[Rfam]
RNA: mir-5408 microRNA precursor family
RNA sequence: AGAGGGUUUGGACUCUAUCUCCCAUAAUGCUUAGCCGUAGCUCCGAGUGGCUAAGACUUCUGGGAGUUGAAGUUCCAACCCCCU
Numbered sequence: 001a002g003a004g005g006g007u008u009u010g011g012a013c014u015c016u017a018u019c020u021c022c023c024a025u026a027a028u029g030c031u032u033a034g035c036c037g038u039a040g041c042u043c044c045g046a047g048u049g050g051c052u053a054a055g056a057c058u059u060c061u062g063g064g065a066g067u068u069g070a071a072g073u074u075c076c077a078a079c080c081c082c083c084u
Base pairs, nucleotide, nucleotide: 001084002083004081005080006079007078008077010075011074012073013072016069017068019066020065021064022063023062024061026059027058030055031054032053033052034051035050036049037048